[Rfam]
RNA sequence: CCUCCCGUCGCUACUACCGAUUGGAUGGUUUAGUGAAGCCCUCGGAUUGGCCCUGCAGGGGUCGGCCCACGGCCCUGGCGGAGAGCUGAGAAGACGGUCGAACUUGACUAUCUAGAGGAAGUAGAAGUUGUAGCAAGGUUUCGGUAGGUGAAAAUGCGGAAGUAUCAUUA
Numbered sequence: 001c002c003u004c005c006c007g008u009c010g011c012u013a014c015u016a017c018c019g020a021u022u023g024g025a026u027g028g029u030u031u032a033g034u035g036a037a038g039c040c041c042u043c044g045g046a047u048u049g050g051c052c053c054u055g056c057a058g059g060g061g062u063c064g065g066c067c068c069a070c071g072g073c074c075c076u077g078g079c080g081g082a083g084a085g086c087u088g089a090g091a092a093g094a095c096g097g098u099c100g101a102a103c104u105u106g107a108c109u110a111u112c113u114a115g116a117g118g119a120a121g122u123a124g125a126a127g128u129u130g131u132a133g134c135a136a137g138g139u140u141u142c143g144g145u146a147g148g149u150g151a152a153a154a155u156g157c158g159g160a161a162g163u164a165u166c167a168u169u170a
Base pairs, nucleotide, nucleotide: 001137004133006130007129009127011124012123013122014121015120017118018117021114023113024112025111026110027109028108029107030106032104033103034102038098039097040096042094043093047089048088049087050086051085053083054082056080059076060075061074139162140161141160142159144157145156146155
RNA: Eukaryotic small subunit ribosomal RNA, nucleotides 1542 to 1711
Organism: Catagonus wagneri